This 417-nucleotide RNA from Blochmannia endosymbiont of Polyrhachis (Hedomyrma) turneri belongs to the Rfam family "Bacterial RNase P class A". It scores 298 bits against the family's covariance model.

[Rfam]
RNA sequence: GGUGUUGAUUAGACAAUCGCUGUUUUUAUUUCGUUAUUUUUAAUUAUAGAAGCAGAGGAAAGUCCGGGCUCCACAGGGUAGAGUGCCAGGUAAUUCCUGGGGGAUGUGAAGUCCACGACGAGUGCAACAGAAAAUACACCGCCUUAUAAUAUUAUAUAAUUAUUAAUCAUUAUAGUUAUAAGGUAAGGGUGAAAAGGUGCGGUAAGAGCGCACCGCAUAUUUGGUAACAAUAUAUGGCAGUGUAAACUCCACUUGGAGCAAGGCUAAAUUGGAAAGAUAUUAUAAUAACAACAAUAAAUAAUAGGUAUGGCCCGUGCCUUAAUCUUUUGGGUGAGCCGCUUUUGAGCUAGUAUGUGAAUGCUGGUCUAGAUAGAUGAUUGUCCAUGACAGAACCCGGCUUAUCGGUCAACUCCCCAU
Numbered sequence: 001g002g003u004g005u006u007g008a009u010u011a012g013a014c015a016a017u018c019g020c021u022g023u024u025u026u027u028a029u030u031u032c033g034u035u036a037u038u039u040u041u042a043a044u045u046a047u048a049g050a051a052g053c054a055g056a057g058g059a060a061a062g063u064c065c066g067g068g069c070u071c072c073a074c075a076g077g078g079u080a081g082a083g084u085g086c087c088a089g090g091u092a093a094u095u096c097c098u099g100g101g102g103g104a105u106g107u108g109a110a111g112u113c114c115a116c117g118a119c120g121a122g123u124g125c126a127a128c129a130g131a132a133a134a135u136a137c138a139c140c141g142c143c144u145u146a147u148a149a150u151a152u153u154a155u156a157u158a159a160u161u162a163u164u165a166a167u168c169a170u171u172a173u174a175g176u177u178a179u180a181a182g183g184u185a186a187g188g189g190u191g192a193a194a195a196g197g198u199g200c201g202g203u204a205a206g207a208g209c210g211c212a213c214c215g216c217a218u219a220u221u222u223g224g225u226a227a228c229a230a231u232a233u234a235u236g237g238c239a240g241u242g243u244a245a246a247c248u249c250c251a252c253u254u255g256g257a258g259c260a261a262g263g264c265u266a267a268a269u270u271g272g273a274a275a276g277a278u279a280u281u282a283u284a285a286u287a288a289c290a291a292c293a294a295u296a297a298a299u300a301a302u303a304g305g306u307a308u309g310g311c312c313c314g315u316g317c318c319u320u321a322a323u324c325u326u327u328u329g330g331g332u333g334a335g336c337c338g339c340u341u342u343u344g345a346g347c348u349a350g351u352a353u354g355u356g357a358a359u360g361c362u363g364g365u366c367u368a369g370a371u372a373g374a375u376g377a378u379u380g381u382c383c384a385u386g387a388c389a390g391a392a393c394c395c396g397g398c399u400u401a402u403c404g405g406u407c408a409a410c411u412c413c414c415c416a417u
Stems, first nucleotide, its partner, number of pairs: 001413002004410007011402001012382007020055009060400003064397005069258004076313004081254005086100005101116001102114004117249002122247002124243003139188002141184009196214006215238001216236005221230003262337004272328006304318005346365008